[Rfam]
A member of the RNA family "Potassium channel RNA editing signal" from Albula goreensis, 114 nucleotides long.
The family's RNA type in Rfam is cis-regulatory element.
This family represents a group of sequences related to the human potassium channel Kv1.1 hairpin element which directs the efficient modification of an adenosine to inosine by an adenosine deaminase acting on RNA (ADAR). The ADAR modification causes an isoleucine/valine recoding event which lies in the ion-conducting pore of the potassium channel. It is thought that this editing event targets the process of fast inactivation and allows a more rapid recovery from inactivation at negative potentials.
RNA sequence: CUGGGCUACGGCGACAUGUACCCACAGACCUGGUCGGGCAUGCUGGUGGGGGCGCUAUGCGCGUUAGCGGGCGUGCUGACAAUCGCCAUGCCCGUGCCCGUCAUCGUCAACAAC
Number, nucleotide and partner (000 for none) at each position: 001c000002u113003g000004g111005g000006c000007u000008a107009c106010g105011g104012c000013g102014a101015c100016a000017u000018g097019u096020a095021c094022c000023c000024a000025c000026a000027g000028a000029c000030c000031u000032g000033g000034u000035c000036g000037g077038g076039c075040a074041u000042g000043c000044u000045g000046g000047u000048g000049g000050g062051g000052g000053c000054g000055c000056u000057a000058u000059g000060c000061g000062c050063g000064u000065u000066a000067g000068c000069g000070g000071g000072c000073g000074u040075g039076c038077u037078g000079a000080c000081a000082a000083u000084c000085g000086c000087c000088a000089u000090g000091c000092c000093c000094g021095u020096g019097c018098c000099c000100g015101u014102c013103a000104u011105c010106g009107u008108c000109a000110a000111c004112a000113a002114c000